The record is a 111-nucleotide sequence from Oceanobacillus halophilus, which matches "BsrF" in Rfam. The base pairs follow the family's consensus structure, which was predicted with WAR. The source organism's lineage runs through Bacteria, Bacillati, Caryophanales, Bacillaceae and Oceanobacillus. By type it is a small RNA. It scores 71 bits against the family's covariance model. A reference for the family is Saito et al. (2008), "Novel small RNA-encoding genes in the intergenic regions of Bacillus subtilis", Gene.
RNA sequence: GCGAUGAGCUGAUUUGUGUAAGUCGAGGGAUUGUGCAACACGUGUGAAUGUGAACACACGGAUCACCUCGCCACAAAUAGGAAAAAGACGCCUAUAGUUGAUAUAGGCGUC
Numbered sequence: 001g002c003g004a005u006g007a008g009c010u011g012a013u014u015u016g017u018g019u020a021a022g023u024c025g026a027g028g029g030a031u032u033g034u035g036c037a038a039c040a041c042g043u044g045u046g047a048a049u050g051u052g053a054a055c056a057c058a059c060g061g062a063u064c065a066c067c068u069c070g071c072c073a074c075a076a077a078u079a080g081g082a083a084a085a086a087g088a089c090g091c092c093u094a095u096a097g098u099u100g101a102u103a104u105a106g107g108c109g110u111c
Stems, first nucleotide, its partner, number of pairs: 014076005024070004029064004041060002044057003087111009